[Rfam]
RNA sequence: AGGAUUCUUGCUUCAACAGCGUUUGGACGGAGCUU
Numbered sequence: 001a002g003g004a005u006u007c008u009u010g011c012u013u014c015a016a017c018a019g020c021g022u023u024u025g026g027a028c029g030g031a032g033c034u035u
Stems, first nucleotide, its partner, number of pairs: 001035003005032004010028001012027005017021001
RNA: Iron response element I
Organism: Scleropages formosus